The record is a 177-nucleotide RNA from Romboutsia weinsteinii, which matches "glmS glucosamine-6-phosphate activated ribozyme aptamer" in Rfam. Rfam classes the family as a riboswitch.
RNA sequence: UUCACUUUCUAAGCGCCAGAACUUAGUGAAUUAUUUUUUUUAAGUUACACAAUACUAAGUUGACGAGGUCAGAGUUAAUCGAAUUAUCGGCGGGUGCUCUGCGGUGUGUUUACCAUCGAAAAACUUCUUUAAAACAUUGGAGUGAUCUAGUGGACAAAGAGAAGCUUAAGUAAACGU
Numbered sequence: 001u002u003c004a005c006u007u008u009c010u011a012a013g014c015g016c017c018a019g020a021a022c023u024u025a026g027u028g029a030a031u032u033a034u035u036u037u038u039u040u041u042a043a044g045u046u047a048c049a050c051a052a053u054a055c056u057a058a059g060u061u062g063a064c065g066a067g068g069u070c071a072g073a074g075u076u077a078a079u080c081g082a083a084u085u086a087u088c089g090g091c092g093g094g095u096g097c098u099c100u101g102c103g104g105u106g107u108g109u110u111u112a113c114c115a116u117c118g119a120a121a122a123a124c125u126u127c128u129u130u131a132a133a134a135c136a137u138u139g140g141a142g143u144g145a146u147c148u149a150g151u152g153g154a155c156a157a158a159g160a161g162a163a164g165c166u167u168a169a170g171u172a173a174a175c176g177u
Base pairs, nucleotide, nucleotide: 020061021060022059023058024057025056026055027054070101071100072099073098074097079090080089081088082087102118103117104116105115106114122166124164125163126162127161135152136151137150138149139148140147141146